This 60-nucleotide sequence from Altererythrobacter sp. BO-6 belongs to the Rfam family "terC RNA". The family's RNA type in Rfam is cis-regulatory element. Pairs were carried over by alignment from the consensus structure, which is taken from published work. Taxonomically the source falls in Altererythrobacter (Bacteria, Pseudomonadati, Pseudomonadota, Erythrobacteraceae).
RNA sequence: AUUCACCACCGGGCCCCUCUGGCGAAUGCUUCCGGCGCAUUCGCGAUGUCGGCGGGAUUG
Numbered sequence: 001a002u003u004c005a006c007c008a009c010c011g012g013g014c015c016c017c018u019c020u021g022g023c024g025a026a027u028g029c030u031u032c033c034g035g036c037g038c039a040u041u042c043g044c045g046a047u048g049u050c051g052g053c054g055g056g057a058u059u060g
Base pairs, nucleotide, nucleotide: 006055007054009052010051011050012049022044023043024042025041026040027039028038029037
Notes:
It scores 51 bits against the family's covariance model.